Source information
A member of the RNA family "U5 spliceosomal RNA" from Salix koriyanagi, 118 nucleotides long. It scores 86 bits against the family's covariance model. For this family Rfam cites "The uRNA database" (Zwieb, Nucleic Acids Res, 1997). Lineage of the source: Eukaryota > Streptophyta > eudicotyledons > rosids > Salix.
[Rfam]
RNA sequence: AGCCGUGUGGUGAGCACAGAGCGAACUAUUCUUUCGCCUUUUACUAAAGAAUACCGUGUGCUCUCCAUUGAUAGCGGCAUACCUCUAUUUUUGGAGGGGUUCUCCUUUCUGUGGACCC
Number, nucleotide and partner (000 for none) at each position: 001a000002g000003c077004c076005g075006u074007g000008u067009g066010g065011u000012g063013a062014g061015c060016a059017c058018a057019g000020a000021g000022c000023g000024a000025a000026c000027u053028a052029u051030u050031c049032u048033u047034u046035c000036g000037c000038c000039u000040u000041u000042u000043a000044c000045u000046a034047a033048a032049g031050a030051a029052u028053a027054c000055c000056g000057u018058g017059u016060g015061c014062u013063c012064u000065c010066c009067a008068u000069u000070g000071a000072u000073a000074g006075c005076g004077g003078c000079a000080u000081a000082c000083c000084u000085c000086u000087a000088u000089u000090u000091u000092u000093g000094g000095a000096g000097g118098g117099g116100u115101u114102c113103u000104c000105c000106u000107u000108u000109c000110u000111g000112u000113g102114g101115a100116c099117c098118c097